[Rfam]
RNA sequence: AGGCGACAAUGAUGACAGGAGUUGUGGCUGGAGGUAAUGUUGGCUCAUUACCACGUGGAGACACCAGUCCCUCUAAACUGACGUUGCCG
Numbered sequence: 001a002g003g004c005g006a007c008a009a010u011g012a013u014g015a016c017a018g019g020a021g022u023u024g025u026g027g028c029u030g031g032a033g034g035u036a037a038u039g040u041u042g043g044c045u046c047a048u049u050a051c052c053a054c055g056u057g058g059a060g061a062c063a064c065c066a067g068u069c070c071c072u073c074u075a076a077a078c079u080g081a082c083g084u085u086g087c088c089g
Stems, first nucleotide, its partner, number of pairs: 002088006
Small nucleolar RNA SNORD127: an 89-nucleotide RNA from Baryphthengus martii. Taxonomically the source falls in Baryphthengus (Eukaryota, Teleostomi, Euteleostomi, Archosauria). Rfam links the family to the GO terms RNA processing and nucleolus. It scores 60 bits against the family's covariance model. The family has 13 seed sequences and 541 matches in Rfam 15.1. By type it is a C/D-box small nucleolar RNA.